[Rfam]
RNA: Small nucleolar RNA snoR14
RNA sequence: AUGAAGUGAUGUGAAGAGUCGUGGUCUGUCAAUCCACUGACAUACAUCCGUGAUGUUAGUCAUGCUAUUCCGAGAUGAUCUGAUCAU
Numbered sequence: 001a002u003g004a005a006g007u008g009a010u011g012u013g014a015a016g017a018g019u020c021g022u023g024g025u026c027u028g029u030c031a032a033u034c035c036a037c038u039g040a041c042a043u044a045c046a047u048c049c050g051u052g053a054u055g056u057u058a059g060u061c062a063u064g065c066u067a068u069u070c071c072g073a074g075a076u077g078a079u080c081u082g083a084u085c086a087u
Stems, first nucleotide, its partner, number of pairs: 001087004